tRNA: an 84-nucleotide RNA from Caldisericum exile. The match comes from Rfam's covariance-model search (59 bits). The family's consensus secondary structure is taken from published work. NCBI's taxonomy places the organism under Bacteria, Pseudomonadati, Caldisericota, Caldisericum, Caldisericum exile. On this family, see Hou, Trends Biochem Sci 1993: "The tertiary structure of tRNA and the development of the genetic code". Clan: tRNA clan.

RNA sequence: GGAGGGGUGGCCGAGUGGUCGAUGGCACCGCACUUGAAAUGCGGCAGGCGAUGAGCCUCGUAGGUUCGAAUCCUAUCCCCUCCG
Number, nucleotide and partner (000 for none) at each position: 001g083002g082003a081004g080005g079006g078007g077008u000009g000010g026011c025012c024013g023014a000015g000016u000017g000018g000019u000020c000021g000022a000023u013024g012025g011026c010027a000028c044029c043030g042031c041032a040033c000034u000035u000036g000037a000038a000039a000040u032041g031042c030043g029044g028045c000046a000047g000048g000049c000050g000051a000052u000053g000054a000055g000056c000057c000058u000059c000060g076061u075062a074063g073064g072065u000066u000067c000068g000069a000070a000071u000072c064073c063074u062075a061076u060077c007078c006079c005080c004081u003082c002083c001084g000